[Rfam]
RNA sequence: UUCCGAAAAAGGCAAAUUUGUCGAAAGAUGAAGACGCAAAGUUUCAGACCUAACGCCUAACGGCUAUGGUGGCUGAACUACCGAA
Numbered sequence: 001u002u003c004c005g006a007a008a009a010a011g012g013c014a015a016a017u018u019u020g021u022c023g024a025a026a027g028a029u030g031a032a033g034a035c036g037c038a039a040a041g042u043u044u045c046a047g048a049c050c051u052a053a054c055g056c057c058u059a060a061c062g063g064c065u066a067u068g069g070u071g072g073c074u075g076a077a078c079u080a081c082c083g084a085a
Base pairs, nucleotide, nucleotide: 012037013036017032018031019030020029021028022027040079041078042077043076045075046074047073048070049069050068055064056063057062
This 85-nucleotide sequence from Psychrobacillus sp. FJAT-21963 belongs to the Rfam family "c-di-GMP-I riboswitch aptamer".
GEMM was predicted in a large-scale screen for bacterial structured RNA regulatory elements.
Gene Ontology term of the family: cyclic-di-GMP binding.